Mammalian CPEB3 ribozyme: a 77-nucleotide sequence from Alligator mississippiensis. The base pairs follow the family's consensus structure, which is taken from published work. NCBI's taxonomy places the organism under Eukaryota, Chordata, Vertebrata, Sauria, Alligator.

RNA sequence: AGGCUCAAGUUCAAGGCCAUAGCAGAAGUGCUUAUGGUGUGGCCCUGUCAGAUUCCAACGAAUCUGUGAAUUCUGCU
Numbered sequence: 001a002g003g004c005u006c007a008a009g010u011u012c013a014a015g016g017c018c019a020u021a022g023c024a025g026a027a028g029u030g031c032u033u034a035u036g037g038u039g040u041g042g043c044c045c046u047g048u049c050a051g052a053u054u055c056c057a058a059c060g061a062a063u064c065u066g067u068g069a070a071u072u073c074u075g076c077u
Stems, first nucleotide, its partner, number of pairs: 015044004021077007028040003049066007